[Rfam]
RNA sequence: UGUGUGGAGGGUUUGAUUCUGGCUCAGGACGAACGCUGGCGGCGUGCUUAACACAUGCAAGUCGAACGGGAUCCACUGGGCUUUUGUUUGGUGGUGAGAGUGGCGAACGGGUGAGUAAUGCGUGACUAACCUGCCGUAUGGUUGGGGAUAGCUCCUGGAAACGGGUGGUAAUACCCAAUGCUCCAGCUGGAUGCAUGUCUGGUUGGGAAAGCUUUUUGUGCCAUAUGAUGGGGUCGCGUCCUAUCAGCUUGUUGGUGGGGUGAUGGCCUACCAAGGCGUCGACGGGUAGCCGGCCUAAGAGGGCGACCGGCCACAUUGGGACUGAGAUACGGCCCAGACUCCUACGGGAGGCAGCAGUGGGGAAUAUUGCACAAUGGGCGCAAGCCUGAUGCAGCGACGCCGCGUGCGGGAUGGAGGCCUUCGGGUUGUAAACCGCUUUUAUAGGGGGGCAAGCUAUGCCUGUGUGGUGUGGUGAGUGGACUUUAUGAAUAAGCACCGGCUAACUACGUGCCAGCAGCCGCGGUAAUACGUAGGGUGCAAGCGUUGUCCGGAUUUAUUG
Numbered sequence: 001u002g003u004g005u006g007g008a009g010g011g012u013u014u015g016a017u018u019c020u021g022g023c024u025c026a027g028g029a030c031g032a033a034c035g036c037u038g039g040c041g042g043c044g045u046g047c048u049u050a051a052c053a054c055a056u057g058c059a060a061g062u063c064g065a066a067c068g069g070g071a072u073c074c075a076c077u078g079g080g081c082u083u084u085u086g087u088u089u090g091g092u093g094g095u096g097a098g099a100g101u102g103g104c105g106a107a108c109g110g111g112u113g114a115g116u117a118a119u120g121c122g123u124g125a126c127u128a129a130c131c132u133g134c135c136g137u138a139u140g141g142u143u144g145g146g147g148a149u150a151g152c153u154c155c156u157g158g159a160a161a162c163g164g165g166u167g168g169u170a171a172u173a174c175c176c177a178a179u180g181c182u183c184c185a186g187c188u189g190g191a192u193g194c195a196u197g198u199c200u201g202g203u204u205g206g207g208a209a210a211g212c213u214u215u216u217u218g219u220g221c222c223a224u225a226u227g228a229u230g231g232g233g234u235c236g237c238g239u240c241c242u243a244u245c246a247g248c249u250u251g252u253u254g255g256u257g258g259g260g261u262g263a264u265g266g267c268c269u270a271c272c273a274a275g276g277c278g279u280c281g282a283c284g285g286g287u288a289g290c291c292g293g294c295c296u297a298a299g300a301g302g303g304c305g306a307c308c309g310g311c312c313a314c315a316u317u318g319g320g321a322c323u324g325a326g327a328u329a330c331g332g333c334c335c336a337g338a339c340u341c342c343u344a345c346g347g348g349a350g351g352c353a354g355c356a357g358u359g360g361g362g363a364a365u366a367u368u369g370c371a372c373a374a375u376g377g378g379c380g381c382a383a384g385c386c387u388g389a390u391g392c393a394g395c396g397a398c399g400c401c402g403c404g405u406g407c408g409g410g411a412u413g414g415a416g417g418c419c420u421u422c423g424g425g426u427u428g429u430a431a432a433c434c435g436c437u438u439u440u441a442u443a444g445g446g447g448g449g450c451a452a453g454c455u456a457u458g459c460c461u462g463u464g465u466g467g468u469g470u471g472g473u474g475a476g477u478g479g480a481c482u483u484u485a486u487g488a489a490u491a492a493g494c495a496c497c498g499g500c501u502a503a504c505u506a507c508g509u510g511c512c513a514g515c516a517g518c519c520g521c522g523g524u525a526a527u528a529c530g531u532a533g534g535g536u537g538c539a540a541g542c543g544u545u546g547u548c549c550g551g552a553u554u555u556a557u558u559g
Stems, first nucleotide, its partner, number of pairs: 009025005027549004032545006039403006045396002047361001052359003056356003061104003066101002075092007111314003120239008130231002135227007143177004152167001154165004183206010211219002240286003247277003252274008289311004293304004316337005339350004367393001369392003375388005406436004416427004441486006450476001456470003493538005504533005514521002
Dot-bracket structure: ........(((((.......))))).((((.((((((.(((((((((....(((.(((..(((..((.......(((((((....))))))).......)))))......(((......((((((((..((...(((((((.((((.....(.((((....)))).)......)))).....((((((((((....))))))))))....((.....)).)))))))..))))))))))(((....(((..((((((((.......)))))))))))......)))..((((((((....))))...))))))).(((((............))))).((((....))))...)))))).).....(.(((...(((((....))))).)))).)).))))))..((((......((((....)))).....))))....((((((...(.....(((.........))).....)....))))))......(((((......(((((.....((....)).......)))))))))).))))))))))..........
Bacterial small subunit ribosomal RNA: a 559-nucleotide part of an RNA from Scardovia wiggsiae. Pairs were carried over by alignment from the consensus structure, which is taken from published work. Taxonomically the source falls in Scardovia wiggsiae (Bacteria, Bacillati, Actinomycetes, Bifidobacteriales). The family has 99 seed sequences and 42,628 matches in Rfam 15.1. The literature on the family includes a 2002 paper in BMC Bioinformatics by Cannone et al., "The comparative RNA web (CRW) site: an online database of comparative sequence and structure information for ribosomal, intron, and other RNAs".